Rfam assigns this 142-nucleotide RNA sequence from Flavobacterium psychrophilum to the family "Flavo-1 RNA". It is annotated as a small RNA. Lineage of the source: Bacteria > Flavobacteriia > Flavobacteriaceae > Flavobacterium > Flavobacterium psychrophilum. The sequence is in the family's curated seed alignment.
RNA sequence: UUUUAGCCCAGAUAGAAAUGGAAAGCUUUUGCAGUUGGCUUGUAUUUUUUCUUGACACGAAAGAGCGACCAACGGAAGCUCCUUUUGUGGCUUUGAAAAAAACAGGCCUACAAAAAACUUGGAAUGUAUAGCUGGAAUGGCU
Numbered sequence: 001u002u003u004u005a006g007c008c009c010a011g012a013u014a015g016a017a018a019u020g021g022a023a024a025g026c027u028u029u030u031g032c033a034g035u036u037g038g039c040u041u042g043u044a045u046u047u048u049u050u051c052u053u054g055a056c057a058c059g060a061a062a063g064a065g066c067g068a069c070c071a072a073c074g075g076a077a078g079c080u081c082c083u084u085u086u087g088u089g090g091c092u093u094u095g096a097a098a099a100a101a102a103c104a105g106g107c108c109u110a111c112a113a114a115a116a117a118c119u120u121g122g123a124a125u126g127u128a129u130a131g132c133u134g135g136a137a138u139g140g141c142u
Base pairs, nucleotide, nucleotide: 009134010133011132013130014129018125019124023120024119025118027116028115029114030113037108038107039106040105041104042103043102